[Rfam]
RNA sequence: UCCAUCGCGAGGUGGAAUCCGAAGGAAGCCGGCGGCAAAACCACGGCCCGACGUACAGGAACCAUAUUUGAGGCUAGCGGCAGUUGGAUGAGCUUGCAUAACAAAGCGAAAUCCUUGCCAUCGAAGGCUACCGGGAGUAAAUGUGGCGGGUAGAUGGAUGGAAAGACAACGCU
Numbered sequence: 001u002c003c004a005u006c007g008c009g010a011g012g013u014g015g016a017a018u019c020c021g022a023a024g025g026a027a028g029c030c031g032g033c034g035g036c037a038a039a040a041c042c043a044c045g046g047c048c049c050g051a052c053g054u055a056c057a058g059g060a061a062c063c064a065u066a067u068u069u070g071a072g073g074c075u076a077g078c079g080g081c082a083g084u085u086g087g088a089u090g091a092g093c094u095u096g097c098a099u100a101a102c103a104a105a106g107c108g109a110a111a112u113c114c115u116u117g118c119c120a121u122c123g124a125a126g127g128c129u130a131c132c133g134g135g136a137g138u139a140a141a142u143g144u145g146g147c148g149g150g151u152a153g154a155u156g157g158a159u160g161g162a163a164a165g166a167c168a169a170c171g172c173u
Base pairs, nucleotide, nucleotide: 001016002015003014004013005012006011028173030171031170036165044156045155046151047150048149049148050147062146063145064144065143066142067141073138074137075136079132080131082129083128084127086114087113088112089111092107093106094105095104

A member of the RNA family "Group II catalytic intron D1-D4-3" from Calderihabitans maritimus, 173 nucleotides long. NCBI's taxonomy places the organism under Bacteria, Bacillati, Bacillota, Clostridia, Calderihabitans.